A member of the RNA family "ALIL pseudoknot" from Catenovulum agarivorans, 117 nucleotides long.
The base pairs follow the family's consensus structure, which is taken from published work.
By type it is a cis-regulatory element.
RNA sequence: AGCUUUUUUCGCCCAGGCGGAGCUCGACCGCAAACCGAAAUAAUGGUUGAAUUUAUUGACGAAAAUCGUGAACUUUAUGGUGUCGAGCCAAUUUGUGAACACUUACCAAUUGCACCA
Numbered sequence: 001a002g003c004u005u006u007u008u009u010c011g012c013c014c015a016g017g018c019g020g021a022g023c024u025c026g027a028c029c030g031c032a033a034a035c036c037g038a039a040a041u042a043a044u045g046g047u048u049g050a051a052u053u054u055a056u057u058g059a060c061g062a063a064a065a066u067c068g069u070g071a072a073c074u075u076u077a078u079g080g081u082g083u084c085g086a087g088c089c090a091a092u093u094u095g096u097g098a099a100c101a102c103u104u105a106c107c108a109a110u111u112g113c114a115c116c117a
Base pairs, nucleotide, nucleotide: 017031018030019029020028078117079116080115081114082113089112090111092109093108095106096105097104098103